A member of the RNA family "U12 minor spliceosomal RNA" from Myotis lucifugus, 150 nucleotides long. Pairs were carried over by alignment from the consensus structure. The family has 62 seed sequences and 2,106 matches in Rfam 15.1. Clan: U2 clan.
RNA sequence: UGGCCUUAAACUUAUGAGUAAGGAAAAUAAUGAUUCGGGGUGAUGCCCGAAUUCUCACUGCUAAUGUGAGAUGAAUUUUUGAGUGGGUAAAGGUUGCCCCUAAGGUGACCCGCCUACUUUGCAAAAUGCCUGGGAGUUUCAAUCUGCCCG
Numbered sequence: 001u002g003g004c005c006u007u008a009a010a011c012u013u014a015u016g017a018g019u020a021a022g023g024a025a026a027a028u029a030a031u032g033a034u035u036c037g038g039g040g041u042g043a044u045g046c047c048c049g050a051a052u053u054c055u056c057a058c059u060g061c062u063a064a065u066g067u068g069a070g071a072u073g074a075a076u077u078u079u080u081g082a083g084u085g086g087g088u089a090a091a092g093g094u095u096g097c098c099c100c101u102a103a104g105g106u107g108a109c110c111c112g113c114c115u116a117c118u119u120u121g122c123a124a125a126a127u128g129c130c131u132g133g134g135a136g137u138u139u140c141a142a143u144c145u146g147c148c149c150g
Stems, first nucleotide, its partner, number of pairs: 004023005032053008054070005084150005091145006100134002103131005112122002